Rfam assigns this 151-nucleotide RNA sequence from Torulaspora delbrueckii to the family "Small nucleolar RNA snR161".

RNA sequence: UAAAAUAACAAUACAUAUCCAGUAUCAUUGGCUGUCUCUGUUUCGCCAACACUUUGACGGUCUCUCUAAGCUGGUAGAUAGAUAUUGGACAACUUAAGUUCCGCUGUGGGGAUGACCUAUUUUCUAUAGCUUUACUGUGGUUCGAACAAGC
Numbered sequence: 001u002a003a004a005a006u007a008a009c010a011a012u013a014c015a016u017a018u019c020c021a022g023u024a025u026c027a028u029u030g031g032c033u034g035u036c037u038c039u040g041u042u043u044c045g046c047c048a049a050c051a052c053u054u055u056g057a058c059g060g061u062c063u064c065u066c067u068a069a070g071c072u073g074g075u076a077g078a079u080a081g082a083u084a085u086u087g088g089a090c091a092a093c094u095u096a097a098g099u100u101c102c103g104c105u106g107u108g109g110g111g112a113u114g115a116c117c118u119a120u121u122u123u124c125u126a127u128a129g130c131u132u133u134a135c136u137g138u139g140g141u142u143c144g145a146a147c148a149a150g151c
Base pairs, nucleotide, nucleotide: 019074020073021072022071023070031061032060033059034058035057036056040052086144087143088142089141090140092138093137103130104129105128106127107126108125109124110123111122112121